[Rfam]
Rfam assigns this 72-nucleotide RNA from Halicephalobus sp. NKZ332 to the family "mir-71 microRNA precursor family". Gene Ontology terms of the family: miRNA-mediated post-transcriptional gene silencing and RISC complex. A reference for the family is Yu et al. (2008), "The silkworm (Bombyx mori) microRNAs and their expressions in multiple developmental stages", PLoS One.
RNA sequence: UGGGGGUGAAAGACAUGGGUAGUGAGACGUGAUUUUUUAAGAUCGUGUCACUAUUCUGUUUUUCGCCUCUUG
Numbered sequence: 001u002g003g004g005g006g007u008g009a010a011a012g013a014c015a016u017g018g019g020u021a022g023u024g025a026g027a028c029g030u031g032a033u034u035u036u037u038u039a040a041g042a043u044c045g046u047g048u049c050a051c052u053a054u055u056c057u058g059u060u061u062u063u064c065g066c067c068u069c070u071u072g
Stems, first nucleotide, its partner, number of pairs: 008064008017056003021052005027046003

Taxonomically the source falls in Halicephalobus (Eukaryota, Bilateria, Protostomia, Ecdysozoa).